Overview
Rfam assigns this 93-nucleotide RNA from Solibacillus sp. R5-41 to the family "Glycine riboswitch aptamer". The base pairs follow the family's consensus structure.
RNA sequence: AUGAAGAUACGGGGAGAGAACGUGAAGUCACGUCGCCGAAGGAGCAAAUAGAAGAUCUAUGAAUCUCUCAGGCAAAAAGACUCGUAUUGGACG
Numbered sequence: 001a002u003g004a005a006g007a008u009a010c011g012g013g014g015a016g017a018g019a020a021c022g023u024g025a026a027g028u029c030a031c032g033u034c035g036c037c038g039a040a041g042g043a044g045c046a047a048a049u050a051g052a053a054g055a056u057c058u059a060u061g062a063a064u065c066u067c068u069c070a071g072g073c074a075a076a077a078a079g080a081c082u083c084g085u086a087u088u089g090g091a092c093g
Stems, first nucleotide, its partner, number of pairs: 006088008020033004035073003038069002042067003048060002
Dot-bracket structure: .....((((((((......((((......)))).(((((..(((...((.........))....))))).))).......)))))))).....
Its family is annotated with glycine biosynthetic process in the Gene Ontology.